Notes:
The record is a 78-nucleotide RNA from Malus domestica, which matches "Small nucleolar RNA U54" in Rfam. The family's consensus secondary structure was predicted with PFOLD. A reference for the family is Chen et al. (2003), "The high diversity of snoRNAs in plants: identification and comparative study of 120 snoRNA genes from Oryza sativa", Nucleic Acids Res. From the family's description: U54 is a C/D box small nucleolar RNA, which acts as a methylation guide for 18S ribosomal RNA in plants. Its Rfam clan is "U54 clan". NCBI's taxonomy places the organism under Eukaryota, Streptophytina, Magnoliopsida, Pentapetalae, Malus.
RNA sequence: UGCUCUGUGAUUAUGUGCCUACAAUGGGCAAUGUAUGUUAUUCUGAUUCAGAACAUGACUGGAUAACUUUUGAGAGCA
Numbered sequence: 001u002g003c004u005c006u007g008u009g010a011u012u013a014u015g016u017g018c019c020u021a022c023a024a025u026g027g028g029c030a031a032u033g034u035a036u037g038u039u040a041u042u043c044u045g046a047u048u049c050a051g052a053a054c055a056u057g058a059c060u061g062g063a064u065a066a067c068u069u070u071u072g073a074g075a076g077c078a
Stems, first nucleotide, its partner, number of pairs: 001078005